A member of the RNA family "Bacterial large subunit ribosomal RNA" from Candidatus Gracilibacteria bacterium GN02-873, 582 nucleotides of a longer RNA.

RNA sequence: AUACACGGCACAAAGUGGAUGCCUUGACUCGAAUAUCCGAUGAAGGACGCGCAAGACUGCGAUAAGCCUGGGUAAGUUGUCACGAAACGUUACAGCCCAGGAUUUCCGAAUGGGGGAACCCUAUCCAUCAAGAUGGAUAACCUGAUUAGGAGGACACCAGCCGAAUUGAAAUAUCUUAGUAAGCUGGGAAAAGAAAUCAACCGAGAUUCCGAAAGUAGUGACGAGCGAAAUUGGAACAGCCCAAACCUGUACGGUGCCAAGGAUGAGCCCGUUGCCGUACGGGGGUUACACGACAUAUCACCGCAAAGCUCAUAUAGCGAUACUGAUAUAUAAUUACAGAAAAAUUACCUGGAAAGGUAGGCCAAAGAGGGUAAUAGCCCCGUAUUCGAAAUAAUCUAUAUAUUCGGUACGAUAUGCUCGUAAGUAGUAUCGGACACGUGAAAUCCGGUAUGAAGUUAGGUCGACCACGAUCUAAGGCUAAAGAGUAUUCGAGAUCGAUAGUGAACAAGUACUGUGAAGGAAAGGUAAAAAGAACCCCGGGAGGGGAGUGAAAUAGAUCCUGAAACUUUGUGCUUACAAAGA
Numbered sequence: 001a002u003a004c005a006c007g008g009c010a011c012a013a014a015g016u017g018g019a020u021g022c023c024u025u026g027a028c029u030c031g032a033a034u035a036u037c038c039g040a041u042g043a044a045g046g047a048c049g050c051g052c053a054a055g056a057c058u059g060c061g062a063u064a065a066g067c068c069u070g071g072g073u074a075a076g077u078u079g080u081c082a083c084g085a086a087a088c089g090u091u092a093c094a095g096c097c098c099a100g101g102a103u104u105u106c107c108g109a110a111u112g113g114g115g116g117a118a119c120c121c122u123a124u125c126c127a128u129c130a131a132g133a134u135g136g137a138u139a140a141c142c143u144g145a146u147u148a149g150g151a152g153g154a155c156a157c158c159a160g161c162c163g164a165a166u167u168g169a170a171a172u173a174u175c176u177u178a179g180u181a182a183g184c185u186g187g188g189a190a191a192a193g194a195a196a197u198c199a200a201c202c203g204a205g206a207u208u209c210c211g212a213a214a215g216u217a218g219u220g221a222c223g224a225g226c227g228a229a230a231u232u233g234g235a236a237c238a239g240c241c242c243a244a245a246c247c248u249g250u251a252c253g254g255u256g257c258c259a260a261g262g263a264u265g266a267g268c269c270c271g272u273u274g275c276c277g278u279a280c281g282g283g284g285g286u287u288a289c290a291c292g293a294c295a296u297a298u299c300a301c302c303g304c305a306a307a308g309c310u311c312a313u314a315u316a317g318c319g320a321u322a323c324u325g326a327u328a329u330a331u332a333a334u335u336a337c338a339g340a341a342a343a344a345u346u347a348c349c350u351g352g353a354a355a356g357g358u359a360g361g362c363c364a365a366a367g368a369g370g371g372u373a374a375u376a377g378c379c380c381c382g383u384a385u386u387c388g389a390a391a392u393a394a395u396c397u398a399u400a401u402a403u404u405c406g407g408u409a410c411g412a413u414a415u416g417c418u419c420g421u422a423a424g425u426a427g428u429a430u431c432g433g434a435c436a437c438g439u440g441a442a443a444u445c446c447g448g449u450a451u452g453a454a455g456u457u458a459g460g461u462c463g464a465c466c467a468c469g470a471u472c473u474a475a476g477g478c479u480a481a482a483g484a485g486u487a488u489u490c491g492a493g494a495u496c497g498a499u500a501g502u503g504a505a506c507a508a509g510u511a512c513u514g515u516g517a518a519g520g521a522a523a524g525g526u527a528a529a530a531a532g533a534a535c536c537c538c539g540g541g542a543g544g545g546g547a548g549u550g551a552a553a554u555a556g557a558u559c560c561u562g563a564a565a566c567u568u569u570g571u572g573c574u575u576a577c578a579a580a581g582a
Stems, first nucleotide, its partner, number of pairs: 007574009021560001022525002026496002028493009037153002045107003048061003067101007076088003112121003122139007141150003157187005168175002197204002207482001208235005218226002238479004246283011290421003295415005325404008333395004339387003345360005363367001369381003427451008458473005512519002535546004